[Rfam]
RNA sequence: UGACGACCGUUCCUCCUGCUGCUCUAAGCUUUGGCAUGUCAGGAUUUUAGGUCGUCACAGAGCAAACAGGGUCUCUUUCACUCAGUGUGCAGCAGGCAGCGUGGCUGCCCUUUUGGACACUGGUUUUGCGGGACCCGACACAU
Dot-bracket structure: ((((((((.....(((((.((((.........))))...))))).....))))))))............((((((......(((((((.((...((((.......))))....)).)))))))......))))))........
Numbered sequence: 001u002g003a004c005g006a007c008c009g010u011u012c013c014u015c016c017u018g019c020u021g022c023u024c025u026a027a028g029c030u031u032u033g034g035c036a037u038g039u040c041a042g043g044a045u046u047u048u049a050g051g052u053c054g055u056c057a058c059a060g061a062g063c064a065a066a067c068a069g070g071g072u073c074u075c076u077u078u079c080a081c082u083c084a085g086u087g088u089g090c091a092g093c094a095g096g097c098a099g100c101g102u103g104g105c106u107g108c109c110c111u112u113u114u115g116g117a118c119a120c121u122g123g124u125u126u127u128g129c130g131g132g133a134c135c136c137g138a139c140a141c142a143u
Stems, first nucleotide, its partner, number of pairs: 001057008014044005020036004070135006082123007090115002095109004
Rfam assigns this 143-nucleotide RNA sequence from Clupea harengus to the family "Small nucleolar RNA SNORA79". About the family: ACA65 (SNORA79) is a member of the H/ACA class of snoRNAs that guide the sites of modification of uridines to pseudouridines. For this family Rfam cites "A computational screen for mammalian pseudouridylation guide H/ACA RNAs" (Schattner et al., RNA, 2006). Its family is annotated with RNA processing and nucleolus in the Gene Ontology. Rfam 15.1 lists 944 matches to the family in 375 species. A search with the family's covariance model found it, with a score of 97 bits.